[Rfam]
RNA sequence: GACUUGCGAUGAUGUGGGAGGUUGCUGACACACCCGGCCCCUUUGCCAUGGCUGGGGUGCAGGAUAUUUCCACGGAGAAAUGUCCGUUAAUAAAAUGGGCGA
Numbered sequence: 001g002a003c004u005u006g007c008g009a010u011g012a013u014g015u016g017g018g019a020g021g022u023u024g025c026u027g028a029c030a031c032a033c034c035c036g037g038c039c040c041c042u043u044u045g046c047c048a049u050g051g052c053u054g055g056g057g058u059g060c061a062g063g064a065u066a067u068u069u070c071c072a073c074g075g076a077g078a079a080a081u082g083u084c085c086g087u088u089a090a091u092a093a094a095a096u097g098g099g100c101g102a
Base pairs, nucleotide, nucleotide: 014073015072016071018070019069020068021067025062026061027060081101082100083099084098085097086096087095088094
Rfam assigns this 102-nucleotide sequence from Brevibacillus fulvus to the family "S10-Clostridia ribosomal protein leader". The family's consensus secondary structure is taken from published work. NCBI's taxonomy places the organism under Bacteria, Bacillota, Caryophanales, Paenibacillaceae, Brevibacillus.